[Rfam]
Nucleotides: 111
Stems, first nucleotide, its partner, number of pairs: 007061006015051002020048002022045001023042004028037001063083007086106001088109001092104003
Number, partner (000 for none) and nucleotide at each position: 001000a002000c003000a004000u005000a006000a007061g008060a009059c010058u011057u012056c013000u014000a015051g016050g017000g018000u019000u020048c021047c022045g023042g024041u025040c026039g027000a028037g029000u030000u031000g032000u033000u034000g035000u036000g037028c038000g039026c040025g041024a042023u043000g044000c045022c046000u047021g048020g049000g050016u051015c052000g053000a054000g055000a056012g057011a058010a059009g060008u061007c062000a063083g064082g065081u066080c067079a068078g069077u070000c071000a072000u073000a074000a075000u076000g077069a078068c079067u080066g081065a082064c083063u084000c085000a086106c087000a088109c089000g090000g091000c092104g093103g094102g095000a096000u097000a098000a099000a100000a101000g102094c103093c104092c105000g106086g107000g108000a109088g110000a111000a
A member of the RNA family "Guanidine-I riboswitch aptamer" from cf. Phormidesmis sp. LEGE 11477, 111 nucleotides long.
The pairing is the family consensus, mapped onto this sequence.
A reference for the family is Trachman RJ 3rd and Ferre-D'Amare (2021), "An uncommon [K(+)(Mg(2+))2] metal ion triad imparts stability and selectivity to the Guanidine-I riboswitch", RNA.